[Rfam]
RNA sequence: AACUUAUCUUUGCCGAGUUCCCGCAAGGGAAACGGGGGAUCCAUUUUUGGGUGAAUUGACCUCGCAACAAAGUGGUCAUAGGGAACCUUCUCACCGAACCCUCAAGCUAACCUCGUAGGCACCGGAAGGGGCAUCU
Numbered sequence: 001a002a003c004u005u006a007u008c009u010u011u012g013c014c015g016a017g018u019u020c021c022c023g024c025a026a027g028g029g030a031a032a033c034g035g036g037g038g039a040u041c042c043a044u045u046u047u048u049g050g051g052u053g054a055a056u057u058g059a060c061c062u063c064g065c066a067a068c069a070a071a072g073u074g075g076u077c078a079u080a081g082g083g084a085a086c087c088u089u090c091u092c093a094c095c096g097a098a099c100c101c102u103c104a105a106g107c108u109a110a111c112c113u114c115g116u117a118g119g120c121a122c123c124g125g126a127a128g129g130g131g132c133a134u135c136u
Stems, first nucleotide, its partner, number of pairs: 011121004018031003032116006043047001049101003057078004081095002
Shown here is a 136-nucleotide sequence from Paenibacillus swuensis, a member of the family "c-di-AMP riboswitch aptamer (ydaO/yuaA leader)". Rfam's curators write: This family represents a conserved RNA structure found upstream of the ydaO and yuaA genes in Bacillus subtilis and related genes in other bacteria. The ydaO/yuaA element is thought to act as a genetic 'off' switch for the ydaO and yuaA genes in its native state. It scores 71 bits against the family's covariance model. The base pairs follow the family's consensus structure.